About this RNA
A member of the RNA family "pan motif" from Paenibacillus rigui, 126 nucleotides long. The family's RNA type in Rfam is cis-regulatory element. The organism belongs to Paenibacillus, within Bacteria.
RNA sequence: GAGGCGAUAUCUGACAAGAAUCGUACUCCCAUUGUAGAUCUAGAAUGUAACGUUUCCAACUGAACUGAAUAUCCCAAUUGGAAUAUGUCGGAUUCUGCUCUGAGCCUAACGGACCGAGACAGAAGG
Numbered sequence: 001g002a003g004g005c006g007a008u009a010u011c012u013g014a015c016a017a018g019a020a021u022c023g024u025a026c027u028c029c030c031a032u033u034g035u036a037g038a039u040c041u042a043g044a045a046u047g048u049a050a051c052g053u054u055u056c057c058a059a060c061u062g063a064a065c066u067g068a069a070u071a072u073c074c075c076a077a078u079u080g081g082a083a084u085a086u087g088u089c090g091g092a093u094u095c096u097g098c099u100c101u102g103a104g105c106c107u108a109a110c111g112g113a114c115c116g117a118g119a120c121a122g123a124a125g126g
Stems, first nucleotide, its partner, number of pairs: 001028003004024005010019002095122003098118003102114001105112002

A search with the family's covariance model found it, with a score of 38 bits.